RNA sequence: GUGAAUUUAGUUUAAUAGAUAAAACAUUUGCUUUGCAAGCAAAACUUGAAAGUUUAAAUCCUUCAAUCCACA
Number, nucleotide and partner (000 for none) at each position: 001g071002u070003g069004a000005a067006u066007u065008u000009a000010g025011u024012u023013u022014a000015a000016u000017a000018g000019a000020u000021a000022a013023a012024a011025c010026a000027u043028u042029u041030g040031c039032u000033u000034u000035g000036c000037a000038a000039g031040c030041a029042a028043a027044a000045c000046u000047u000048g064049a063050a062051a000052g060053u000054u000055u000056a000057a000058a000059u000060c052061c000062u050063u049064c048065a007066a006067u005068c000069c003070a002071c001072a000
The family of this 72-nucleotide RNA sequence is "tRNA".
Rfam classes the family as a transfer RNA.